[Rfam]
RNA sequence: AGGGGAUUAGUUCAUCGGUAGAAUAAGAGUCUCCAAAACUCCAGAGCCGGGUUCGAUUCCUGGAUCCCCUG
Numbered sequence: 001a002g003g004g005g006a007u008u009a010g011u012u013c014a015u016c017g018g019u020a021g022a023a024u025a026a027g028a029g030u031c032u033c034c035a036a037a038a039c040u041c042c043a044g045a046g047c048c049g050g051g052u053u054c055g056a057u058u059c060c061u062g063g064a065u066c067c068c069c070u071g
Stems, first nucleotide, its partner, number of pairs: 001070007010024004027041004047063005
RNA: tRNA
Organism: Roseburia sp. AM16-25